RNA: Small nucleolar RNA SNORA33
Organism: Microtus ochrogaster
Nucleotides: 124
Stems, first nucleotide, its partner, number of pairs: 003050001012036004064117004076104002079101004084096003
Number, partner (000 for none) and nucleotide at each position: 001000a002000a003050g004000c005000c006000a007000a008000u009000c010000a011000a012036u013035c014034u015033g016000c017000u018000u019000a020000u021000c022000u023000c024000a025000a026000u027000g028000u029000u030000g031000c032000a033015c034014a035013g036012a037000a038000a039000a040000u041000u042000a043000g044000a045000g046000a047000a048000g049000g050003c051000a052000g053000g054000c055000a056000a057000u058000g059000g060000u061000g062000a063000u064117g065116c066115c067114a068000u069000g070000u071000u072000a073000u074000g075000a076104g077103c078000c079101u080100u081099a082098a083000g084096g085095a086094c087000a088000a089000c090000u091000g092000a093000a094086g095085u096084c097000u098082u099081u100080a101079a102000a103077g104076u105000c106000c107000c108000u109000g110000a111000a112000a113000a114067u115066g116065g117064c118000a119000a120000c121000a122000g123000u124000a